[Rfam]
RNA sequence: AAAAACUCCCAUUACAGGUGUAGUACCCCAUCCUGGUGCAACCUUACCGUAUUCAGAGUUA
Numbered sequence: 001a002a003a004a005a006c007u008c009c010c011a012u013u014a015c016a017g018g019u020g021u022a023g024u025a026c027c028c029c030a031u032c033c034u035g036g037u038g039c040a041a042c043c044u045u046a047c048c049g050u051a052u053u054c055a056g057a058g059u060u061a
Stems, first nucleotide, its partner, number of pairs: 017045002020042002023039005
Notes:
The record is a 61-nucleotide RNA from Chrysochromulina tobinii, which matches "Plastid-psbN 5UTR RNA" in Rfam. Rfam classes the family as a cis-regulatory element. Taxonomically the source falls in Chrysochromulina (Eukaryota, Prymnesiophyceae, Prymnesiales, Chrysochromulinaceae). The base pairs follow the family's consensus structure, which was predicted with LocARNA. The match comes from Rfam's covariance-model search (55 bits). Plastid psbN is a non-coding RNA (ncRNA) recognised in plastids.